RNA sequence: GUCUGACACGGCCCCACGGUAGCCAGUUUGGCUCCGACGUUUGGCCGUGGCGCAAUGAC
Numbered sequence: 001g002u003c004u005g006a007c008a009c010g011g012c013c014c015c016a017c018g019g020u021a022g023c024c025a026g027u028u029u030g031g032c033u034c035c036g037a038c039g040u041u042u043g044g045c046c047g048u049g050g051c052g053c054a055a056u057g058a059c
Stems, first nucleotide, its partner, number of pairs: 007049007016041001018035002021033005

The family of this 59-nucleotide RNA sequence from Paracoccus aminophilus is "Selenocysteine insertion sequence 3". The literature on the family includes a 1996 paper in RNA by Huttenhofer et al., "Solution structure of mRNA hairpins promoting selenocysteine incorporation in Escherichia coli and their base-specific interaction with special elongation factor SELB". The match comes from Rfam's covariance-model search (81 bits). Rfam links the family to the GO term selenocysteine incorporation. The organism belongs to Paracoccus aminophilus, within Bacteria.